About this RNA: The family of this 60-nucleotide sequence from Caldalkalibacillus thermarum is "Fluoride riboswitch aptamer (crcB RNA motif)". A search with the family's covariance model found it, with a score of 62 bits. The base pairs follow the family's consensus structure, which is taken from published work.
[Rfam]
RNA sequence: CGCGAAAUAGGCGAUGGAGUUCGCCAUAACCGCCUGACGGCUGAUGACUCCUACCGAUAC
Number, nucleotide and partner (000 for none) at each position: 001c000002g000003c000004g000005a000006a000007a000008u000009a000010g025011g024012c023013g022014a000015u000016g051017g050018a049019g048020u047021u046022c013023g012024c011025c010026a000027u000028a000029a000030c000031c000032g041033c040034c039035u000036g000037a000038c000039g034040g033041c032042u000043g000044a000045u000046g021047a020048c019049u018050c017051c016052u000053a000054c000055c000056g000057a000058u000059a000060c000